[Rfam]
RNA sequence: GGGUAAUGACGUAUGUGGUGUACUGGUAAGCACUGCAUAUCUGAACCUUUAUAGGGUUAUGUGUGAACUCCUCAAACCAGUAAAGAAAACACACUAU
Number, nucleotide and partner (000 for none) at each position: 001g048002g047003g046004u045005a000006a000007u000008g000009a000010c000011g041012u039013a038014u037015g036016u035017g034018g033019u032020g031021u030022a000023c080024u079025g078026g077027u000028a000029a000030g021031c020032a019033c018034u017035g016036c015037a014038u013039a012040u000041c011042u000043g000044a000045a004046c003047c002048u001049u000050u000051a000052u000053a000054g000055g000056g000057u000058u000059a000060u000061g092062u091063g090064u000065g000066a000067a000068c000069u000070c000071c000072u000073c000074a000075a000076a000077c026078c025079a024080g023081u000082a000083a000084a000085g000086a000087a000088a000089a000090c063091a062092c061093a000094c000095u000096a000097u000

Record summary
This 97-nucleotide sequence from Kochikohdavirus PBEF19 belongs to the Rfam family "drum RNA". The base pairs follow the family's consensus structure, which is taken from published work. It scores 48 bits against the family's covariance model.